[Rfam]
Description: The family of this 691-nucleotide sequence is "MISL RNA". Rfam's curators put it in the seed alignment. By type it is a small RNA. Pairs were carried over by alignment from the consensus structure, which is taken from published work.
RNA sequence: AGAGGAGGCUGGGUUUUGCGAUCUUUAAGCAGAUGGCAGGUUCACCCCGUACGGUGCGGAAGUUCGCGCUUCCGUGAAACGCGAAAAUCGGACGGUGGCUGCAAGUCGCAUCGCAAAACCGCGGCAAGUGGAGUUAGCGAGAGGAGGCUGGGUUUUGGCUUCCUUAAGCAAUCGGUCACCGAGAAGGUGUGGUCGUUACCGUGAAAUUCCGGAUAGGUUCGAGGCCGUGGGCACUGACAUGAGCGCUAAUAGACAAAGCUUUUCGGAGCGGAGGAUAUGGAACGCGGCUUCGAGCGAGAUCGUGAAACUUCGCCGUCGGGCGAAGGGAAGCGAAGGUUCGACUGGAAGCCGAAAGGCGGAAAGUCGAGUUGUUGAAAAAUGACCUGAGAGCAAAAGGCGAGACCCGUAGAUCAGGACGAGCUGGAGUGGGCAACCACGAACGCGAGGACUGUGAAAACGGGGAGGCUGUGAGUAACAACGAUAACCUCCCCCGGUGAUUCGAUGGAGCGCCGCAAGGCGAGCCGAUGAAUUGCCGAGAAGCCUGGCUCGAAAUCGUCGACGCAUCGACGACGGUCCUGCCAUGAGACCGUAACGAGGACAUGUCGCCUCGAAUGGCGUCGGGGAGCCGGCAGCUUACCCCAAGGAUGAGCGCCUAAUGCCGGUACCCGGGAACGAGCGUGUGGCGAACGCC
Numbered sequence: 001a002g003a004g005g006a007g008g009c010u011g012g013g014u015u016u017u018g019c020g021a022u023c024u025u026u027a028a029g030c031a032g033a034u035g036g037c038a039g040g041u042u043c044a045c046c047c048c049g050u051a052c053g054g055u056g057c058g059g060a061a062g063u064u065c066g067c068g069c070u071u072c073c074g075u076g077a078a079a080c081g082c083g084a085a086a087a088u089c090g091g092a093c094g095g096u097g098g099c100u101g102c103a104a105g106u107c108g109c110a111u112c113g114c115a116a117a118a119c120c121g122c123g124g125c126a127a128g129u130g131g132a133g134u135u136a137g138c139g140a141g142a143g144g145a146g147g148c149u150g151g152g153u154u155u156u157g158g159c160u161u162c163c164u165u166a167a168g169c170a171a172u173c174g175g176u177c178a179c180c181g182a183g184a185a186g187g188u189g190u191g192g193u194c195g196u197u198a199c200c201g202u203g204a205a206a207u208u209c210c211g212g213a214u215a216g217g218u219u220c221g222a223g224g225c226c227g228u229g230g231g232c233a234c235u236g237a238c239a240u241g242a243g244c245g246c247u248a249a250u251a252g253a254c255a256a257a258g259c260u261u262u263u264c265g266g267a268g269c270g271g272a273g274g275a276u277a278u279g280g281a282a283c284g285c286g287g288c289u290u291c292g293a294g295c296g297a298g299a300u301c302g303u304g305a306a307a308c309u310u311c312g313c314c315g316u317c318g319g320g321c322g323a324a325g326g327g328a329a330g331c332g333a334a335g336g337u338u339c340g341a342c343u344g345g346a347a348g349c350c351g352a353a354a355g356g357c358g359g360a361a362a363g364u365c366g367a368g369u370u371g372u373u374g375a376a377a378a379a380u381g382a383c384c385u386g387a388g389a390g391c392a393a394a395a396g397g398c399g400a401g402a403c404c405c406g407u408a409g410a411u412c413a414g415g416a417c418g419a420g421c422u423g424g425a426g427u428g429g430g431c432a433a434c435c436a437c438g439a440a441c442g443c444g445a446g447g448a449c450u451g452u453g454a455a456a457a458c459g460g461g462g463a464g465g466c467u468g469u470g471a472g473u474a475a476c477a478a479c480g481a482u483a484a485c486c487u488c489c490c491c492c493g494g495u496g497a498u499u500c501g502a503u504g505g506a507g508c509g510c511c512g513c514a515a516g517g518c519g520a521g522c523c524g525a526u527g528a529a530u531u532g533c534c535g536a537g538a539a540g541c542c543u544g545g546c547u548c549g550a551a552a553u554c555g556u557c558g559a560c561g562c563a564u565c566g567a568c569g570a571c572g573g574u575c576c577u578g579c580c581a582u583g584a585g586a587c588c589g590u591a592a593c594g595a596g597g598a599c600a601u602g603u604c605g606c607c608u609c610g611a612a613u614g615g616c617g618u619c620g621g622g623g624a625g626c627c628g629g630c631a632g633c634u635u636a637c638c639c640c641a642a643g644g645a646u647g648a649g650c651g652c653c654u655a656a657u658g659c660c661g662g663u664a665c666c667c668g669g670g671a672a673c674g675a676g677c678g679u680g681u682g683g684c685g686a687a688c689g690c691c
Stems, first nucleotide, its partner, number of pairs: 001026005047095004052090002058073005064084005099131004105125005115156006141165008173201003177189004191384006230247003234243002260274005298343001300341003308325006349359003388548003395543003412451003420443002461489005467483003494533008503524003508519004553570007571589005578616004593610005625663007632650002637644002676690003